This 72-nucleotide sequence from Stutzerimonas nosocomialis belongs to the Rfam family "Pseudomonas sRNA P10". For this family Rfam cites "Identification of 17 Pseudomonas aeruginosa sRNAs and prediction of sRNA-encoding genes in 10 diverse pathogens using the bioinformatic tool sRNAPredict2" (Livny et al., Nucleic Acids Res, 2006).

RNA sequence: CCUGGGCGACCCCACCGACUGCCCGAAGAAGGGCCAUGGCACCAACCCCAUCGCGGCGGGCUCUCCCGACGU
Numbered sequence: 001c002c003u004g005g006g007c008g009a010c011c012c013c014a015c016c017g018a019c020u021g022c023c024c025g026a027a028g029a030a031g032g033g034c035c036a037u038g039g040c041a042c043c044a045a046c047c048c049c050a051u052c053g054c055g056g057c058g059g060g061c062u063c064u065c066c067c068g069a070c071g072u
Stems, first nucleotide, its partner, number of pairs: 007071002017040001019038001020036002023033002051069003055065002

Pairs were carried over by alignment from the consensus structure, which was predicted with WAR.